Annotation:
Shown here is a 66-nucleotide RNA sequence from Chrysochloris asiatica, a member of the family "MAT2A 3'UTR stem loop F". The organism belongs to Chrysochloris, within Eukaryota. The literature on the family includes a 2011 paper in Genome Res by Parker et al., "New families of human regulatory RNA structures identified by comparative analysis of vertebrate genomes".
RNA sequence: UAUGGAGAAAGCUGACUUUGCUGGUGUGGUACAGAGAAGUCAGCUUGUUCAUUUGCUUAUCAUAUA
Numbered sequence: 001u002a003u004g005g006a007g008a009a010a011g012c013u014g015a016c017u018u019u020g021c022u023g024g025u026g027u028g029g030u031a032c033a034g035a036g037a038a039g040u041c042a043g044c045u046u047g048u049u050c051a052u053u054u055g056c057u058u059a060u061c062a063u064a065u066a
Stems, first nucleotide, its partner, number of pairs: 001066004007060001009058004014049003020044006026032002